[Rfam]
RNA: MIR824 microRNA precursor family
Organism: Brassica carinata
RNA sequence: CUCGAGUUGUCUCUCAUGUCUAGACCAUUUGUGUCGGAUUCUAUAUGUGCACCUCACCAAUCUCUAAAUCGACAAUUAGUGUUAAGCUCAUAUAAGUAAAUUAGCUUCUAUACAUAAAGUGCAUUCAUGACUUUUCCAGAUGCUAUAUACAUAUUUUUUUUAGAGUUAGGUCAUGCCGAUUCUCCAAAUCAUAUAUAAUCGUAUACAAUUUUGGACAUACAUUUUGCCUAAGAGAUGCCAAACUUCUGUCUGGAGUGUUAGAGCUUUCUCGUGAUAGCUCAUAAUUUGUAUAGCUUGACUACUUAGCUACACUAGUUUACUUGAUAAAAAAAAAAAAAAAAAUUGAGGGGAGUGUGGGAGCUGCUGGAUUAUUUCCCCUUCUCAUCGAUGGUCUAGAUUUGCGAGGUGACUCUCAUAGUGG
Numbered sequence: 001c002u003c004g005a006g007u008u009g010u011c012u013c014u015c016a017u018g019u020c021u022a023g024a025c026c027a028u029u030u031g032u033g034u035c036g037g038a039u040u041c042u043a044u045a046u047g048u049g050c051a052c053c054u055c056a057c058c059a060a061u062c063u064c065u066a067a068a069u070c071g072a073c074a075a076u077u078a079g080u081g082u083u084a085a086g087c088u089c090a091u092a093u094a095a096g097u098a099a100a101u102u103a104g105c106u107u108c109u110a111u112a113c114a115u116a117a118a119g120u121g122c123a124u125u126c127a128u129g130a131c132u133u134u135u136c137c138a139g140a141u142g143c144u145a146u147a148u149a150c151a152u153a154u155u156u157u158u159u160u161u162a163g164a165g166u167u168a169g170g171u172c173a174u175g176c177c178g179a180u181u182c183u184c185c186a187a188a189u190c191a192u193a194u195a196u197a198a199u200c201g202u203a204u205a206c207a208a209u210u211u212u213g214g215a216c217a218u219a220c221a222u223u224u225u226g227c228c229u230a231a232g233a234g235a236u237g238c239c240a241a242a243c244u245u246c247u248g249u250c251u252g253g254a255g256u257g258u259u260a261g262a263g264c265u266u267u268c269u270c271g272u273g274a275u276a277g278c279u280c281a282u283a284a285u286u287u288g289u290a291u292a293g294c295u296u297g298a299c300u301a302c303u304u305a306g307c308u309a310c311a312c313u314a315g316u317u318u319a320c321u322u323g324a325u326a327a328a329a330a331a332a333a334a335a336a337a338a339a340a341a342a343u344u345g346a347g348g349g350g351a352g353u354g355u356g357g358g359a360g361c362u363g364c365u366g367g368a369u370u371a372u373u374u375c376c377c378c379u380u381c382u383c384a385u386c387g388a389u390g391g392u393c394u395a396g397a398u399u400u401g402c403g404a405g406g407u408g409a410c411u412c413u414c415a416u417a418g419u420g421g
Base pairs, nucleotide, nucleotide: 001420003418004412005411006410007409008408009407010406011405012404013403015401016400018398019397020396021395022394023393024392025391026390027389028388029387031385032384033383036377037376049364050363051362053360056355058354059353063351064350065349